[Rfam]
Shown here is an 84-nucleotide sequence from Nasonia vitripennis, a member of the family "mir-184 microRNA precursor family".
Rfam links the family to the GO terms gene silencing by miRNA and RISC complex.
Rfam's curators put it in the seed alignment.
For this family Rfam cites "The developmental miRNA profiles of zebrafish as determined by small RNA cloning" (Chen et al., Genes Dev, 2005).
The source organism's lineage runs through Eukaryota, Mandibulata, Altocrustacea, Neoptera and Nasonia.

RNA sequence: GUGCCUAAAGCCCCUUAUCAUUCUCCUGUCGAGUGUUAAAAUUCUCUACGACUGGACGGAGAACUGAUAAGGGCCCGAGGGUUA
Numbered sequence: 001g002u003g004c005c006u007a008a009a010g011c012c013c014c015u016u017a018u019c020a021u022u023c024u025c026c027u028g029u030c031g032a033g034u035g036u037u038a039a040a041a042u043u044c045u046c047u048a049c050g051a052c053u054g055g056a057c058g059g060a061g062a063a064c065u066g067a068u069a070a071g072g073g074c075c076c077g078a079g080g081g082u083u084a
Base pairs, nucleotide, nucleotide: 012073013072014071015070016069017068018067019066020065021063022062023061024060025059026058029055030054